The record is a 181-nucleotide RNA sequence from Faecalibacterium sp. CAG:74, which matches "Group II catalytic intron D1-D4-3" in Rfam. Gene Ontology term of the family: Group II intron splicing. Pairs were carried over by alignment from the consensus structure.
RNA sequence: UCCAUCGAAAGGCGGAGUCUGAAGGAAGCCGGAUGCCAGCGGGCAAACUCCCGAACCGACGAACAGAAAUCACAUAGUAGACCGUAGAGGGGCGGACGAGUGUGCCGAGCAACACAAAGUCCAAGGCUGCCCGAAUCCCGUGCGGUAAAUAUGGCGGUUAUGUGGAAGAAAAAAAGGCGGC
Numbered sequence: 001u002c003c004a005u006c007g008a009a010a011g012g013c014g015g016a017g018u019c020u021g022a023a024g025g026a027a028g029c030c031g032g033a034u035g036c037c038a039g040c041g042g043g044c045a046a047a048c049u050c051c052c053g054a055a056c057c058g059a060c061g062a063a064c065a066g067a068a069a070u071c072a073c074a075u076a077g078u079a080g081a082c083c084g085u086a087g088a089g090g091g092g093c094g095g096a097c098g099a100g101u102g103u104g105c106c107g108a109g110c111a112a113c114a115c116a117a118a119g120u121c122c123a124a125g126g127c128u129g130c131c132c133g134a135a136u137c138c139c140g141u142g143c144g145g146u147a148a149a150u151a152u153g154g155c156g157g158u159u160a161u162g163u164g165g166a167a168g169a170a171a172a173a174a175a176g177g178c179g180g181c
Base pairs, nucleotide, nucleotide: 001016002015003014005012006011028181029180030179031178048168049167051165052164053163054159055158056157057156058155070154071153072152074150075149081146082145083144085142087141089139090138091137092136094122095121096120097119100115101114102113103112
Record summary
NCBI's taxonomy places the organism under Bacteria, Bacillati, Bacillota, Oscillospiraceae, Faecalibacterium. Rfam's curators write: Group II introns are found in rRNA, tRNA and mRNA of organelles in fungi, plants and protists, and also in mRNA in bacteria.